[Rfam]
RNA sequence: UGUGAGAGUGAUGAGUUGCACUAAUAUGUUGGGGUGUCUGCUGCAGUGGCAUCAGCACCUCAAUCCGACCCCACCUGAGGACACACAGUGUGCACAGGGGCCAUCUGACUCACC
Numbered sequence: 001u002g003u004g005a006g007a008g009u010g011a012u013g014a015g016u017u018g019c020a021c022u023a024a025u026a027u028g029u030u031g032g033g034g035u036g037u038c039u040g041c042u043g044c045a046g047u048g049g050c051a052u053c054a055g056c057a058c059c060u061c062a063a064u065c066c067g068a069c070c071c072c073a074c075c076u077g078a079g080g081a082c083a084c085a086c087a088g089u090g091u092g093c094a095c096a097g098g099g100g101c102c103a104u105c106u107g108a109c110u111c112a113c114c
Stems, first nucleotide, its partner, number of pairs: 004113001006111003025068001028065001029063004034058003040053001042051003
This 114-nucleotide RNA from Amphiprion percula belongs to the Rfam family "Small nucleolar RNA SNORD67". Rfam classes the family as a C/D-box small nucleolar RNA. Its family is annotated with nucleolus and RNA processing in the Gene Ontology. Lineage of the source: Eukaryota > Deuterostomia > Euteleosteomorpha > Pomacentridae > Amphiprion. It scores 90 bits against the family's covariance model. Rfam describes the family as follows. snoRNA HBII-166 belongs to the C/D family of snoRNAs.